[Rfam]
RNA sequence: GCGGGGGGUAUGUGACUCUGGUGUGCACCACGGCCUUCAAAGCCGAUUGGAGGGGCGGUUGACCGUCUCUUGGGAGGUUCGAUUCCUCCACCCUCUC
Numbered sequence: 001g002c003g004g005g006g007g008g009u010a011u012g013u014g015a016c017u018c019u020g021g022u023g024u025g026c027a028c029c030a031c032g033g034c035c036u037u038c039a040a041a042g043c044c045g046a047u048u049g050g051a052g053g054g055g056c057g058g059u060u061g062a063c064c065g066u067c068u069c070u071u072g073g074g075a076g077g078u079u080c081g082a083u084u085c086c087u088c089c090a091c092c093c094u095c096u097c
Stems, first nucleotide, its partner, number of pairs: 001097001003095005012028003016025001018023001029049001031045004051071005074088004

Selenocysteine transfer RNA: a 97-nucleotide sequence from Sulfurospirillum deleyianum.
The family is grouped with related families in Rfam's "tRNA clan".
Lineage of the source: Bacteria > Epsilonproteobacteria > Campylobacterales > Sulfurospirillum > Sulfurospirillum deleyianum.
Its family is annotated with triplet codon-amino acid adaptor activity in the Gene Ontology.